[Rfam]
RNA: L31-Coriobacteria ribosomal protein leader
RNA sequence: GUCCUGGUCGGUAACCAGGACGCGACCAGAAGAGGAG
Numbered sequence: 001g002u003c004c005u006g007g008u009c010g011g012u013a014a015c016c017a018g019g020a021c022g023c024g025a026c027c028a029g030a031a032g033a034g035g036a037g
Stems, first nucleotide, its partner, number of pairs: 001021008